[Rfam]
RNA sequence: AAUGAAAUCUACUCCGUUUUUCUUCGCAUUCUUUUUUAGCUUCUUUACCUUCCCCUGACCUGGGAGGCAAUUCGUCGUGUAAGAAUCAAUGCGAAGACGAACAAUAAAGCCUCCCAAACGGGAGGCUUUUUUUUU
Numbered sequence: 001a002a003u004g005a006a007a008u009c010u011a012c013u014c015c016g017u018u019u020u021u022c023u024u025c026g027c028a029u030u031c032u033u034u035u036u037u038a039g040c041u042u043c044u045u046u047a048c049c050u051u052c053c054c055c056u057g058a059c060c061u062g063g064g065a066g067g068c069a070a071u072u073c074g075u076c077g078u079g080u081a082a083g084a085a086u087c088a089a090u091g092c093g094a095a096g097a098c099g100a101a102c103a104a105u106a107a108a109g110c111c112u113c114c115c116a117a118a119c120g121g122g123a124g125g126c127u128u129u130u131u132u133u134u135u
Stems, first nucleotide, its partner, number of pairs: 016102004021097010033085002036082003051065004066076003106129010
Shown here is a 135-nucleotide sequence from Erwinia sorbitola, a member of the family "Phenylalanine leader peptide". Pairs were carried over by alignment from the consensus structure, which was predicted with CMfinder.